This 93-nucleotide RNA sequence from Flexivirga caeni belongs to the Rfam family "Glycine riboswitch aptamer".
The base pairs follow the family's consensus structure.
From the family's description: This family represents the bacterial glycine riboswitch. Glycine riboswitches usually consist of two metabolite-binding aptamers domains with similar structures in tandem. The aptamers cooperatively bind glycine to regulate the expression of downstream genes. In Bacillus subtilis, this riboswitch is found upstream of the gcvT operon which controls glycine degradation.
NCBI's taxonomy places the organism under Bacteria, Actinomycetes, Micrococcales, Dermacoccaceae, Flexivirga.

[Rfam]
RNA sequence: CGACACCGGGUGGGAGAGUUCCGGCAGCACCGCCGGAACGCCGAAGGGGCAACAUCCCCAGAACCUCUCAGGCACCAGGACCACUUGGCCGAG
Number, nucleotide and partner (000 for none) at each position: 001c000002g000003a000004c000005a000006c088007c087008g086009g085010g084011u083012g082013g081014g000015a000016g000017a000018g000019u000020u037021c036022c035023g034024g000025c000026a000027g000028c000029a000030c000031c000032g000033c000034c023035g022036g021037a020038a000039c000040g073041c072042c071043g069044a068045a000046g000047g067048g066049g065050c000051a000052a000053c000054a000055u000056c000057c000058c000059c000060a000061g000062a000063a000064c000065c049066u048067c047068u044069c043070a000071g042072g041073c040074a000075c000076c000077a000078g000079g000080a000081c013082c012083a011084c010085u009086u008087g007088g006089c000090c000091g000092a000093g000